Rfam assigns this 72-nucleotide RNA sequence from Ceyx cyanopectus to the family "Small nucleolar RNA SNORD66". Rfam links the family to the GO terms RNA processing and nucleolus. The base pairs follow the family's consensus structure, which was predicted with RNAalifold. A search with the family's covariance model found it, with a score of 63 bits. About the family: snoRNA HBII-142 is part of the C/D family of snoRNAs. It is the human orthologue of the mouse MBII-142 snoRNA and is predicted to guide 2'O-ribose methylation of small 18S rRNA at residue C1272. By type it is a C/D-box small nucleolar RNA.
[Rfam]
RNA sequence: CUCCUGUGAUGAACUCUAUGACUUUGUGUCUGGGCCACUGAUGCUCUGUGAAGGUGUUGAGGAUCUGAGGAG
Numbered sequence: 001c002u003c004c005u006g007u008g009a010u011g012a013a014c015u016c017u018a019u020g021a022c023u024u025u026g027u028g029u030c031u032g033g034g035c036c037a038c039u040g041a042u043g044c045u046c047u048g049u050g051a052a053g054g055u056g057u058u059g060a061g062g063a064u065c066u067g068a069g070g071a072g
Base pairs, nucleotide, nucleotide: 001072002071003070004069